About this RNA: This 168-nucleotide RNA sequence from Halobacillus andaensis belongs to the Rfam family "glmS glucosamine-6-phosphate activated ribozyme aptamer". It scores 117 bits against the family's covariance model. Rfam classes the family as a riboswitch.
[Rfam]
RNA sequence: AUCAUUUAUAAAGCGCCAGGGCUGUGCAGAGCGGAUCAAGCACAGUUGACGAGGAGGAGGUUCAUCGAGCGUUCGGCGGAUGCCUCCCGGUUGCAGCACUUCAACCGCAUGUUUGUAUGCUAAACCAAAGAGGCGACUCUUUGACCAAAUCGUACAAACAAAGUGCCU
Numbered sequence: 001a002u003c004a005u006u007u008a009u010a011a012a013g014c015g016c017c018a019g020g021g022c023u024g025u026g027c028a029g030a031g032c033g034g035a036u037c038a039a040g041c042a043c044a045g046u047u048g049a050c051g052a053g054g055a056g057g058a059g060g061u062u063c064a065u066c067g068a069g070c071g072u073u074c075g076g077c078g079g080a081u082g083c084c085u086c087c088c089g090g091u092u093g094c095a096g097c098a099c100u101u102c103a104a105c106c107g108c109a110u111g112u113u114u115g116u117a118u119g120c121u122a123a124a125c126c127a128a129a130g131a132g133g134c135g136a137c138u139c140u141u142u143g144a145c146c147a148a149a150u151c152g153u154a155c156a157a158a159c160a161a162a163g164u165g166c167c168u
Stems, first nucleotide, its partner, number of pairs: 020047008056087005065076004088107006112158007126143007
From the family's description: This entry contains a glucosamine-6-phosphate activated ribozyme that is found in the mRNA for GlmS. GlmS is an enzyme that uses fructose-6-phosphate and glutamine to generate glucosamine-6-phosphate. The ribozyme catalyses self cleavage of the glmS mRNA that is thought to regulate GlmS activity. Gene Ontology terms of the family: regulation of gene expression and catalytic activity.